[Rfam]
RNA sequence: UAUUAGGUUGGUGCAAAAGUAGUUGUAGUUUUUGCCAUUACUUCCAAUGGCAAAAACCGCAACUACUUUUGCACCAAUCUAAUA
Numbered sequence: 001u002a003u004u005a006g007g008u009u010g011g012u013g014c015a016a017a018a019g020u021a022g023u024u025g026u027a028g029u030u031u032u033u034g035c036c037a038u039u040a041c042u043u044c045c046a047a048u049g050g051c052a053a054a055a056a057c058c059g060c061a062a063c064u065a066c067u068u069u070u071g072c073a074c075c076a077a078u079c080u081a082a083u084a
Stems, first nucleotide, its partner, number of pairs: 001084026028057012
mir-548 microRNA precursor family: an 84-nucleotide RNA sequence from Callithrix jacchus. Taxonomically the source falls in Callithrix (Eukaryota, Bilateria, Euteleostomi, Primates). The base pairs follow the family's consensus structure, which was predicted with WAR. Rfam links the family to the GO terms RISC complex and miRNA-mediated post-transcriptional gene silencing.